[Rfam]
RNA sequence: GAGCAUUAGGAAGGCUUAUAAAUUAGGCUACUAACUGAGAACUAAGUUUCUCCAGGAACGCCCUAGGGGACAGUCCCCGGGCACAUGGCAGAAAGUGCACUGCCGACUAGCAGUCAUUCGGCUUGUGCGUUACAAUCUGUAGCUGAGACGUUCAAUGGAACUGAGCUUGGUACUCGCAGGUUGCCUUUUGUCAGUGCGAUAGCCGAUAGGUAUGCAUGAACAGAAAGGGUCUCAUUCUCAUGUCGUU
Numbered sequence: 001g002a003g004c005a006u007u008a009g010g011a012a013g014g015c016u017u018a019u020a021a022a023u024u025a026g027g028c029u030a031c032u033a034a035c036u037g038a039g040a041a042c043u044a045a046g047u048u049u050c051u052c053c054a055g056g057a058a059c060g061c062c063c064u065a066g067g068g069g070a071c072a073g074u075c076c077c078c079g080g081g082c083a084c085a086u087g088g089c090a091g092a093a094a095g096u097g098c099a100c101u102g103c104c105g106a107c108u109a110g111c112a113g114u115c116a117u118u119c120g121g122c123u124u125g126u127g128c129g130u131u132a133c134a135a136u137c138u139g140u141a142g143c144u145g146a147g148a149c150g151u152u153c154a155a156u157g158g159a160a161c162u163g164a165g166c167u168u169g170g171u172a173c174u175c176g177c178a179g180g181u182u183g184c185c186u187u188u189u190g191u192c193a194g195u196g197c198g199a200u201a202g203c204c205g206a207u208a209g210g211u212a213u214g215c216a217u218g219a220a221c222a223g224a225a226a227g228g229g230u231c232u233c234a235u236u237c238u239c240a241u242g243u244c245g246u247u
Stems, first nucleotide, its partner, number of pairs: 002247003007242002010239002014211006023066005037052005072232002076229003088098003099114005117183001122180006131172003141167003150161004
The record is a 247-nucleotide sequence from Coregonus sp. 'balchen', which matches "RNase MRP" in Rfam.
The base pairs follow the family's consensus structure, which is taken from published work.